Rfam assigns this 62-nucleotide RNA sequence from Clostridium pasteurianum to the family "RAGATH-18 RNA".
Taxonomically the source falls in Clostridium pasteurianum (Bacteria, Bacillati, Bacillota, Eubacteriales).
From the family's description: Actinobacteria, Firmicutes, Fusobacteria, Thermotogae (1 example).
The base pairs follow the family's consensus structure, which is taken from published work.
RNA sequence: CCCUUGGAGUGUUAUAUCAAACGAAAGUAGCUUCGGCAAAAUCGGACACGUUGAAUAGGGAA
Numbered sequence: 001c002c003c004u005u006g007g008a009g010u011g012u013u014a015u016a017u018c019a020a021a022c023g024a025a026a027g028u029a030g031c032u033u034c035g036g037c038a039a040a041a042u043c044g045g046a047c048a049c050g051u052u053g054a055a056u057a058g059g060g061a062a
Stems, first nucleotide, its partner, number of pairs: 001060004009049005022044003030037002